[Rfam]
Shown here is a 121-nucleotide RNA sequence from Geosporobacter ferrireducens, a member of the family "Molybdenum/Tungsten riboswitch aptamer (Moco RNA motif)". The organism belongs to Geosporobacter, within Bacteria.
RNA sequence: UGUUGAACGUCUCUUCGAGUCUGUUUAUCUAAGGACAAUCGUCUAUGAUUUUAAGACCGAUAGGGUAAAGCCGGAAACGGUUCUGCCUCCCAGUGAGGAAAGAAGAGAUCGUGGUAGAGUA
Numbered sequence: 001u002g003u004u005g006a007a008c009g010u011c012u013c014u015u016c017g018a019g020u021c022u023g024u025u026u027a028u029c030u031a032a033g034g035a036c037a038a039u040c041g042u043c044u045a046u047g048a049u050u051u052u053a054a055g056a057c058c059g060a061u062a063g064g065g066u067a068a069a070g071c072c073g074g075a076a077a078c079g080g081u082u083c084u085g086c087c088u089c090c091c092a093g094u095g096a097g098g099a100a101a102g103a104a105g106a107g108a109u110c111g112u113g114g115u116a117g118a119g120u121a
Stems, first nucleotide, its partner, number of pairs: 004114001006112001011107006019057004027049003033044004063088005069082005089098002